Rfam assigns this 52-nucleotide RNA to the family "6A RNA".
It is annotated as a small RNA.
It is one of the family's seed sequences.
The family's consensus secondary structure is taken from published work.
RNA sequence: AGAUAAGGACGUAGAGCCACGCCCUUGUAAAACUAAAAAAAGCUCACUGAGA
Numbered sequence: 001a002g003a004u005a006a007g008g009a010c011g012u013a014g015a016g017c018c019a020c021g022c023c024c025u026u027g028u029a030a031a032a033c034u035a036a037a038a039a040a041a042g043c044u045c046a047c048u049g050a051g052a
Base pairs, nucleotide, nucleotide: 006025007024008023010021011020014045015044016043017042